[Rfam]
RNA: U4 spliceosomal RNA
Nucleotides: 138
Base pairs, nucleotide, nucleotide: 020052021051022050023049024048026047027046028045034042035041085113086112088107089106090105091104092103093102094101095100127138128137129136130135
Number, partner (000 for none) and nucleotide at each position: 001000a002000g003000c004000u005000u006000u007000g008000u009000g010000c011000a012000g013000u014000g015000g016000c017000a018000g019000u020052a021051u022050u023049g024048u025000a026047g027046c028045c029000a030000a031000u032000g033000a034042g035041g036000u037000u038000u039000a040000u041035c042034c043000g044000a045028g046027g047026c048024a049023c050022a051021a052020u053000u054000a055000u056000u057000g058000c059000u060000a061000a062000u063000u064000a065000a066000g067000a068000g069000c070000a071000u072000a073000u074000g075000c076000c077000u078000u079000u080000g081000u082000u083000c084000u085113g086112g087000c088107c089106u090105g091104c092103a093102g094101u095100g096000a097000a098000g099000u100095u101094a102093c103092u104091g105090c106089a107088g108000u109000c110000g111000u112086u113085u114000u115000a116000a117000u118000c119000a120000c121000u122000u123000g124000u125000g126000a127138g128137c129136c130135u131000u132000g133000a134000c135130a136129g137128g138127c